speF leader: a 149-nucleotide RNA sequence from Paenochrobactrum gallinarii.
NCBI's taxonomy places the organism under Bacteria, Pseudomonadati, Pseudomonadota, Alphaproteobacteria, Paenochrobactrum.
This family is a putative regulatory RNA structure that is found upstream of the speF gene encoding ornithine decarboxylase in Agrobacterium tumefaciens and other alpha-proteobacteria.
The family's RNA type in Rfam is cis-regulatory leader.
RNA sequence: UUUCGGCUGUCCAAAAGUCGGGAACUCAAAGAGGCACACCUUCAUUGCCGGUAGUGCGGAAGCGGUUAACUCUUCCAAUCCAAGGCAGACAAAGCGGAAUAACGCUUAGCGGCGUUGUCCCAUCAUCGCUAUGAACUUUCACAUGAUUU
Numbered sequence: 001u002u003u004c005g006g007c008u009g010u011c012c013a014a015a016a017g018u019c020g021g022g023a024a025c026u027c028a029a030a031g032a033g034g035c036a037c038a039c040c041u042u043c044a045u046u047g048c049c050g051g052u053a054g055u056g057c058g059g060a061a062g063c064g065g066u067u068a069a070c071u072c073u074u075c076c077a078a079u080c081c082a083a084g085g086c087a088g089a090c091a092a093a094g095c096g097g098a099a100u101a102a103c104g105c106u107u108a109g110c111g112g113c114g115u116u117g118u119c120c121c122a123u124c125a126u127c128g129c130u131a132u133g134a135a136c137u138u139u140c141a142c143a144u145g146a147u148u149u
Stems, first nucleotide, its partner, number of pairs: 001023008033049004056129003085095001102115005